The record is a 97-nucleotide RNA sequence from Drosophila albomicans, which matches "mir-310 microRNA precursor family" in Rfam.
[Rfam]
RNA sequence: CCAUUUUGAGGACGGUACUUGUGACAAUAUGCGAUUUAUUAAAUUAUUCCUAUGUAAUUUAAUUGCUCAUAUUGCACACCUCCCGGCCUGAAAAUGA
Numbered sequence: 001c002c003a004u005u006u007u008g009a010g011g012a013c014g015g016u017a018c019u020u021g022u023g024a025c026a027a028u029a030u031g032c033g034a035u036u037u038a039u040u041a042a043a044u045u046a047u048u049c050c051u052a053u054g055u056a057a058u059u060u061a062a063u064u065g066c067u068c069a070u071a072u073u074g075c076a077c078a079c080c081u082c083c084c085g086g087c088c089u090g091a092a093a094a095u096g097a
Base pairs, nucleotide, nucleotide: 002096003095004094005093006092007091010088011087013085014084017081020078021077023075025074026073027072028071029070030069031068
Rfam 15.1 lists 60 matches to the family in 29 species. The family's consensus secondary structure was predicted with RNAalifold. A search with the family's covariance model found it, with a score of 62 bits. Lineage of the source: Eukaryota > Bilateria > Diptera > Eremoneura > Drosophila.